[Rfam]
RNA sequence: UCAGCCGACACUGGAGAGCGGAUCACGCGGACAUGCCCAUGGCCGGUGGCCCCACCGAAGGAGCAAGCGGAAGGCGGCGCCUCCCGCGAAUCUCUCAGGUACCAAGGACAGCGGGAGCGGC
Numbered sequence: 001u002c003a004g005c006c007g008a009c010a011c012u013g014g015a016g017a018g019c020g021g022a023u024c025a026c027g028c029g030g031a032c033a034u035g036c037c038c039a040u041g042g043c044c045g046g047u048g049g050c051c052c053c054a055c056c057g058a059a060g061g062a063g064c065a066a067g068c069g070g071a072a073g074g075c076g077g078c079g080c081c082u083c084c085c086g087c088g089a090a091u092c093u094c095u096c097a098g099g100u101a102c103c104a105a106g107g108a109c110a111g112c113g114g115g116a117g118c119g120g121c
Stems, first nucleotide, its partner, number of pairs: 009113001011111003020052002023049004054100003057096002061094003067087004

Glycine riboswitch aptamer: a 121-nucleotide RNA from Mitsuaria sp. WAJ17. About the family: This family represents the bacterial glycine riboswitch. It scores 42 bits against the family's covariance model.